[Rfam]
RNA sequence: ACAGUGUGACAAUCCCUUGUGGUCUCCUGUGGCCCCUGGUGCCAUAACUGUGCCCACAGCAGAGGGAGCAUUAAACUCAUUGCCCAUGGGAAAGGGUGGGGAGUGAUACCCAUGUUCCUAGAAUC
Numbered sequence: 001a002c003a004g005u006g007u008g009a010c011a012a013u014c015c016c017u018u019g020u021g022g023u024c025u026c027c028u029g030u031g032g033c034c035c036c037u038g039g040u041g042c043c044a045u046a047a048c049u050g051u052g053c054c055c056a057c058a059g060c061a062g063a064g065g066g067a068g069c070a071u072u073a074a075a076c077u078c079a080u081u082g083c084c085c086a087u088g089g090g091a092a093a094g095g096g097u098g099g100g101g102a103g104u105g106a107u108a109c110c111c112a113u114g115u116u117c118c119u120a121g122a123a124u125c
Stems, first nucleotide, its partner, number of pairs: 001051005006045001014041001016039001021034004065118001067116005077106005085098003
Rfam assigns this 125-nucleotide sequence from Bucco capensis to the family "Small nucleolar RNA ACA64".
The family's RNA type in Rfam is H/ACA-box small nucleolar RNA.
For this family Rfam cites "A computational screen for mammalian pseudouridylation guide H/ACA RNAs" (Schattner et al., RNA, 2006).
The base pairs follow the family's consensus structure, which was predicted with WAR.
Gene Ontology terms of the family: nucleolus and RNA processing.